[Rfam]
RNA sequence: UCAAAUUCGUUGAAGAGGAUAGUAGGAUUAUGAAAAGGCUACAAGCGAGCUGGAGUUGGUGUGAGUCCGGCAGCCGUCAUAUUUUGAAGCGUACCUUGGAGAAGAUCGCCUGAAACCGCAUGAGGGAGUAUGGCAGUCCGGUUAAAGCCGUUAUUUAUAUGAGUGGAAUCAUCCGAGUAUUUUUGCGAUGAUUCAAAAAGAGUGGUACCACGGAAGCGUUCGUCUCUUAU
Number, nucleotide and partner (000 for none) at each position: 001u000002c000003a000004a000005a000006u000007u102008c101009g000010u000011u000012g000013a000014a000015g097016a096017g095018g094019a000020u000021a000022g000023u000024a000025g085026g084027a083028u000029u081030a080031u000032g000033a000034a000035a000036a000037g000038g074039c073040u072041a000042c000043a000044a000045g000046c000047g000048a000049g071050c070051u069052g068053g067054a066055g000056u000057u000058g000059g000060u000061g000062u000063g000064a000065g000066u054067c053068c052069g051070g050071c049072a040073g039074c038075c000076g000077u000078c000079a000080u030081a029082u000083u027084u026085u025086g000087a000088a000089g000090c000091g000092u000093a000094c018095c017096u016097u015098g000099g000100a000101g008102a007103a000104g000105a137106u136107c000108g134109c133110c132111u000112g000113a000114a000115a000116c000117c000118g000119c000120a000121u000122g000123a000124g000125g000126g000127a000128g000129u000130a000131u000132g110133g109134c108135a000136g106137u105138c000139c150140g149141g148142u000143u000144a000145a000146a000147g000148c141149c140150g139151u000152u000153a000154u000155u000156u000157a000158u000159a000160u000161g000162a000163g000164u000165g000166g194167a193168a192169u191170c190171a189172u188173c000174c000175g000176a000177g000178u000179a000180u000181u000182u000183u000184u000185g000186c000187g000188a172189u171190g170191a169192u168193u167194c166195a000196a000197a000198a000199a227200g226201a225202g224203u000204g000205g000206u000207a000208c000209c000210a223211c222212g221213g220214a219215a000216g000217c000218g000219u214220u213221c212222g211223u210224c202225u201226c200227u199228u000229a000230u000
Shown here is a 230-nucleotide RNA sequence from Peptoclostridium litorale, a member of the family "T-box leader". The match comes from Rfam's covariance-model search (126 bits). Uncharged tRNA acts as the effector for transcription antitermination of genes in the T-box leader family. T-boxes are found upstream of many aminoacyl-tRNA synthetase genes and some amino acid biosynthetic genes usually in Gram-positive bacteria. The source organism's lineage runs through Bacteria, Clostridia, Peptoclostridiaceae, Peptoclostridium and Peptoclostridium litorale.